[Rfam]
RNA sequence: GGGAAAUGUGUGUGGGGUUUGGUGAGCCACCUCAACCCUUACAAGAUUAGGCUCA
Numbered sequence: 001g002g003g004a005a006a007u008g009u010g011u012g013u014g015g016g017g018u019u020u021g022g023u024g025a026g027c028c029a030c031c032u033c034a035a036c037c038c039u040u041a042c043a044a045g046a047u048u049a050g051g052c053u054c055a
Stems, first nucleotide, its partner, number of pairs: 014039006021032002024054005
RNA: Ma3 gene ribosomal frameshift signal
Organism: Pan troglodytes